The family of this 115-nucleotide RNA sequence from Arthrobacter subterraneus is "SAM (S-adenosyl methionine) riboswitch aptamer". The match comes from Rfam's covariance-model search (116 bits). The family's consensus secondary structure is taken from published work.

RNA sequence: GGUCACGAGUGCCAGCGCUAAACCCCGGUUUGCUGGCCGGCAACCCUCCAUCCGCGGUGGGGUGCCCCGGGUGACGACCAGGCCGGAUCAGAAUGUGGUUCGGCAAGCGCGGGAC
Number, nucleotide and partner (000 for none) at each position: 001g079002g078003u077004c076005a000006c000007g000008a000009g038010u000011g037012c036013c035014a034015g033016c032017g000018c000019u000020a000021a030022a029023c000024c000025c000026c000027g000028g000029u022030u021031u000032g016033c015034u014035g013036g012037c011038c009039g066040g065041c064042a000043a000044c062045c061046c060047u000048c057049c056050a000051u000052c000053c000054g000055c000056g049057g048058u000059g000060g046061g045062g044063u000064g041065c040066c039067c000068c000069g000070g000071g000072u000073g000074a000075c000076g004077a003078c002079c001080a000081g000082g104083c103084c102085g101086g100087a099088u098089c097090a096091g000092a000093a000094u000095g000096u090097g089098g088099u087100u086101c085102g084103g083104c082105a000106a000107g000108c000109g000110c000111g000112g000113g000114a000115c000